[Rfam]
RNA sequence: AUAUUGAUCUAGUGGUGUAUAACUCUGCUAGUCAUAAUUUUUAUGGCGAAACCUUCAAAUUGCGGGAAAAUCUUAAAGACAAAUUUACCAAGUAGUAUAGAAAUAUAACUAAUGAAACAAGUAAUAACUUAGGGUAAAAACAAUUUGUAUGUAGAAAUUAAAUAGAUUAUCCGCAGCCAAGUACCAAAGAUAUAUAUAUAUAUAUAUCUUUGGUAUGCAGUUCAUCGACUAAAUGGAGGUUGGUAGUAAUAUAUUACUUAUUACUGCUUAAGAUAUAGUCAAUCAUAAUUGGAAUAUUUAU
Numbered sequence: 001a002u003a004u005u006g007a008u009c010u011a012g013u014g015g016u017g018u019a020u021a022a023c024u025c026u027g028c029u030a031g032u033c034a035u036a037a038u039u040u041u042u043a044u045g046g047c048g049a050a051a052c053c054u055u056c057a058a059a060u061u062g063c064g065g066g067a068a069a070a071u072c073u074u075a076a077a078g079a080c081a082a083a084u085u086u087a088c089c090a091a092g093u094a095g096u097a098u099a100g101a102a103a104u105a106u107a108a109c110u111a112a113u114g115a116a117a118c119a120a121g122u123a124a125u126a127a128c129u130u131a132g133g134g135u136a137a138a139a140a141c142a143a144u145u146u147g148u149a150u151g152u153a154g155a156a157a158u159u160a161a162a163u164a165g166a167u168u169a170u171c172c173g174c175a176g177c178c179a180a181g182u183a184c185c186a187a188a189g190a191u192a193u194a195u196a197u198a199u200a201u202a203u204a205u206a207u208c209u210u211u212g213g214u215a216u217g218c219a220g221u222u223c224a225u226c227g228a229c230u231a232a233a234u235g236g237a238g239g240u241u242g243g244u245a246g247u248a249a250u251a252u253a254u255u256a257c258u259u260a261u262u263a264c265u266g267c268u269u270a271a272g273a274u275a276u277a278g279u280c281a282a283u284c285a286u287a288a289u290u291g292g293a294a295u296a297u298u299u300a301u
Stems, first nucleotide, its partner, number of pairs: 001018006025031001050241005056235002061175006071166003176221002181216004188209007225281001227280005243267009287298003